Shown here is a 359-nucleotide part of an RNA from Halorubrum tebenquichense, a member of the family "Archaeal small subunit ribosomal RNA". The sequence is in the family's curated seed alignment. The literature on the family includes a 2001 paper in Science by Yusupov et al., "Crystal structure of the ribosome at 5.5 A resolution". The source organism's lineage runs through Archaea, Methanobacteriota, Halobacteria, Halobacteriales and Halorubrum. The family has 86 seed sequences and 709 matches in Rfam 15.1. Rfam links the family to the GO terms ribosome and structural constituent of ribosome. The family is grouped with related families in Rfam's "SSU clan".
RNA sequence: GGCCUAAAGCGUCCGUAGCUGGCCACGCAAGUCCAUCGGGAAAUCCACCUGCCCAACAGGUGGGCGCCCGGUAGAAACUGCGUGGCUUGGGACCGGAAGGCGCGACGGGUACGUCCGGGGUAGGAGUGAAAUCCCGUAAUCCUGGACGGACCGCCGAUGGCGAAAGCACGUCGCGAGAACGGAUCCGACAGUGAGGGACGAAAGCCAGGGUCUCGAACCGGAUUAGAUACCCGGGUAGUCCUGGCCGUAAACAAUGUCUGCUAGGUGUGGCUCCCACUACGAGUGGGUGCUGUGCCGUAGGGAAGCCGCUAAGCAGACCGCCUGGGAAGUACGUCCGCAAGGAUGAAACUUAAAGGAAU
Numbered sequence: 001g002g003c004c005u006a007a008a009g010c011g012u013c014c015g016u017a018g019c020u021g022g023c024c025a026c027g028c029a030a031g032u033c034c035a036u037c038g039g040g041a042a043a044u045c046c047a048c049c050u051g052c053c054c055a056a057c058a059g060g061u062g063g064g065c066g067c068c069c070g071g072u073a074g075a076a077a078c079u080g081c082g083u084g085g086c087u088u089g090g091g092a093c094c095g096g097a098a099g100g101c102g103c104g105a106c107g108g109g110u111a112c113g114u115c116c117g118g119g120g121u122a123g124g125a126g127u128g129a130a131a132u133c134c135c136g137u138a139a140u141c142c143u144g145g146a147c148g149g150a151c152c153g154c155c156g157a158u159g160g161c162g163a164a165a166g167c168a169c170g171u172c173g174c175g176a177g178a179a180c181g182g183a184u185c186c187g188a189c190a191g192u193g194a195g196g197g198a199c200g201a202a203a204g205c206c207a208g209g210g211u212c213u214c215g216a217a218c219c220g221g222a223u224u225a226g227a228u229a230c231c232c233g234g235g236u237a238g239u240c241c242u243g244g245c246c247g248u249a250a251a252c253a254a255u256g257u258c259u260g261c262u263a264g265g266u267g268u269g270g271c272u273c274c275c276a277c278u279a280c281g282a283g284u285g286g287g288u289g290c291u292g293u294g295c296c297g298u299a300g301g302g303a304a305g306c307c308g309c310u311a312a313g314c315a316g317a318c319c320g321c322c323u324g325g326g327a328a329g330u331a332c333g334u335c336c337g338c339a340a341g342g343a344u345g346a347a348a349c350u351u352a353a354a355g356g357a358a359u
Base pairs, nucleotide, nucleotide: 001322002321003320009319011199012198013197014196016193018192019191020190022086023085024084025083026082027081028080030079031078032075033074035072036071037070038069039068040067045063046062047061048060049059050058051057090186091185092184093182094181095180101175102174103173104172105171106170107169108152109151112148113147114146115145116144117143118142119141123134124133125132160167161166204245205244206243207242208241209240214238218234219233220232221231256318257317258316259315260314261313264296265295266294267293268292269291270290271289273287274286275285276284277283300307301306324351325350326349333344334343335342336341